rpsB sRNA: a 90-nucleotide RNA from Blastochloris tepida.

[Rfam]
Nucleotides: 090
Base pairs, nucleotide, nucleotide: 001068003066005065006064007063008062009061010060023030024029037054038053039052040051041050042049
Number, partner (000 for none) and nucleotide at each position: 001068c002000a003066c004000a005065c006064g007063c008062g009061g010060a011000c012000u013000c014000a015000u016000g017000g018000u019000c020000u021000u022000u023030c024029g025000a026000g027000g028000c029024c030023g031000u032000c033000c034000g035000g036000u037054g038053c039052c040051u041050c042049g043000a044000u045000a046000c047000c048000u049042c050041g051040g052039g053038g054037c055000a056000a057000c058000c059000g060010u061009c062008c063007g064006c065005g066003g067000a068001g069000g070000c071000u072000c073000a074000a075000c076000c077000g078000g079000a080000a081000a082000a083000g084000g085000a086000a087000c088000u089000g090000c
NCBI's taxonomy places the organism under Bacteria, Pseudomonadati, Alphaproteobacteria, Blastochloridaceae, Blastochloris. Rfam 15.1 lists 245 matches to the family in 245 species. By type it is a small RNA.